[Rfam]
Small nucleolar RNA SNORA11: a 129-nucleotide RNA sequence from Myotis davidii.
U107 (SNORA11) is a member of the H/ACA class of snoRNAs that guide the sites of modification of uridines to pseudouridines. This snoRNA was identified by RT-PCR from blood cells and its expression confirmed by Northern blot analysis.
A search with the family's covariance model found it, with a score of 40 bits.
For this family Rfam cites "A novel experimental approach for systematic identification of box H/ACA snoRNAs from eukaryotes" (Gu et al., Nucleic Acids Res, 2005).
The source organism's lineage runs through Eukaryota, Gnathostomata, Boreoeutheria, Vespertilionidae and Myotis.
Its family is annotated with nucleolus and RNA processing in the Gene Ontology.

RNA sequence: CCGAUGUGAAGAGAGCAGAGUGCCUGAAGCGUGACUCCUCUGUGAUUAACACAUCCAACAGCAACGUGGGCUUACUCCUCACAGGUGGCAGGACACUCUGGCCUUCCUGUGACAGUGUGCCCUCUACGU
Dot-bracket structure: ..((((((......((((((.(.(........).)..))))))......)))))).............((.(....(....((.(.(.((((....)))).).).....))...)...).)).......